RNA: Bacterial small signal recognition particle RNA
Organism: Thalassotalea sp. ND16A
RNA sequence: UCUUGGUCCUCCCGCAAUGAUACUCUGUGAACUCGGCCAGGUCCGGAAGGAAGCAACCGCAGCAGACGACUCAUGUGCCGGGAUGUUGGCUAGGAGGG
Numbered sequence: 001u002c003u004u005g006g007u008c009c010u011c012c013c014g015c016a017a018u019g020a021u022a023c024u025c026u027g028u029g030a031a032c033u034c035g036g037c038c039a040g041g042u043c044c045g046g047a048a049g050g051a052a053g054c055a056a057c058c059g060c061a062g063c064a065g066a067c068g069a070c071u072c073a074u075g076u077g078c079c080g081g082g083a084u085g086u087u088g089g090c091u092a093g094g095a096g097g098g
Base pairs, nucleotide, nucleotide: 004092005091006090007089008088010083011082012081013080014079015075017074018073019072020071024066025065026064027063028062034059035058036057042051043050044049